[Rfam]
A member of the RNA family "Small nucleolar RNA SNORA75" from Sphaeramia orbicularis, 134 nucleotides long. It is annotated as an H/ACA-box small nucleolar RNA. U23 belongs to the H/ACA class of snoRNAs. snoRNAs bind a number of proteins (including dyskerin, Gar1p and Nop10p in the case of the H/ACA class) to form snoRNP complexes. This class are thought to guide the sites of modification of uridines to pseudouridines by forming direct base pairing interactions with substrate RNAs. Targets include ribosomal and spliceosomal RNAs as well as the Trypanosoma spliced leader RNA (SL RNA) as possibly other, still unknown cellular RNAs. U23 can direct the pseudouridylation of U97 in human 18S rRNA (Bachellerie JP, Ganot, P unpublished data). U23 is encoded within intron 12 of the nucleolin gene in human, mouse, rat chicken, and Xenopus laevis.
RNA sequence: ACCUUCUCAUGAGCUCCUCUUAAUCCAACCCAUGAUUAUGCAUGGAUUCGCACGAGAAGCAGAGCCACUGCUCAGUCAGAACAGGCUCACCCUGCUUUCAUGUGGAUGAUGCUUAUGUCUGCUGUGCAACAUGU
Numbered sequence: 001a002c003c004u005u006c007u008c009a010u011g012a013g014c015u016c017c018u019c020u021u022a023a024u025c026c027a028a029c030c031c032a033u034g035a036u037u038a039u040g041c042a043u044g045g046a047u048u049c050g051c052a053c054g055a056g057a058a059g060c061a062g063a064g065c066c067a068c069u070g071c072u073c074a075g076u077c078a079g080a081a082c083a084g085g086c087u088c089a090c091c092c093u094g095c096u097u098u099c100a101u102g103u104g105g106a107u108g109a110u111g112c113u114u115a116u117g118u119c120u121g122c123u124g125u126g127c128a129a130c131a132u133g134u
Base pairs, nucleotide, nucleotide: 003059004058005057006056007055008054013051014050015046016045017044021038022037023036024035025034070127071126073124074123075122088108089107091105092104